The family of this 79-nucleotide sequence from Diatraea saccharalis is "mir-2767 microRNA precursor family". A search with the family's covariance model found it, with a score of 72 bits. Taxonomically the source falls in Diatraea (Eukaryota, Pterygota, Amphiesmenoptera, Crambidae).
Nucleotides: 079
Stems, first nucleotide, its partner, number of pairs: 006075006013068002016065012029052008
Number, partner (000 for none) and nucleotide at each position: 001000u002000u003000u004000c005000g006075a007074c008073g009072u010071c011070a012000a013068u014067c015000c016065a017064a018063g019062u020061a021060a022059a023058u024057c025056u026055c027054g028000u029052g030051c031050g032049g033048c034047u035046u036045a037000u038000a039000u040000u041000a042000g043000u044000u045036u046035a047034a048033g049032c050031c051030g052029u053000u054027c055026g056025a057024g058023a059022u060021u061020u062019a063018u064017u065016u066000c067014g068013a069000g070011u071010g072009a073008u074007g075006u076000a077000g078000a079000a